Rfam assigns this 84-nucleotide RNA sequence from Streptomyces fructofermentans to the family "nrdJ RNA". Pairs were carried over by alignment from the consensus structure, which is taken from published work. Lineage of the source: Bacteria > Bacillati > Actinomycetota > Kitasatosporales > Streptomyces.
RNA sequence: ACCUGUCACGGGCAGCGGCGUAGGCGAUGCCCGCGACACCAGACACACACCGUGCCACGGAAGAACGCGGCACUUCAGGGCGUU
Numbered sequence: 001a002c003c004u005g006u007c008a009c010g011g012g013c014a015g016c017g018g019c020g021u022a023g024g025c026g027a028u029g030c031c032c033g034c035g036a037c038a039c040c041a042g043a044c045a046c047a048c049a050c051c052g053u054g055c056c057a058c059g060g061a062a063g064a065a066c067g068c069g070g071c072a073c074u075u076c077a078g079g080g081c082g083u084u
Stems, first nucleotide, its partner, number of pairs: 004038004009033006016026002052073005058067002